Shown here is a 78-nucleotide RNA sequence from Nezara viridula, a member of the family "mir-2796 microRNA precursor family". The source organism's lineage runs through Eukaryota, Eumetazoa, Arthropoda, Dicondylia and Nezara.
[Rfam]
RNA sequence: GCAUUGGAGCAGGGGUUUCUUUCGGCCUCCAGCCGCAUGGGAUAGUUGUAGGCCGGCGGAAACUACUUGCUCCAGGCU
Numbered sequence: 001g002c003a004u005u006g007g008a009g010c011a012g013g014g015g016u017u018u019c020u021u022u023c024g025g026c027c028u029c030c031a032g033c034c035g036c037a038u039g040g041g042a043u044a045g046u047u048g049u050a051g052g053c054c055g056g057c058g059g060a061a062a063c064u065a066c067u068u069g070c071u072c073c074a075g076g077c078u
Stems, first nucleotide, its partner, number of pairs: 005074004010069004014064007022056007030048003
The base pairs follow the family's consensus structure, which was predicted with RNAalifold.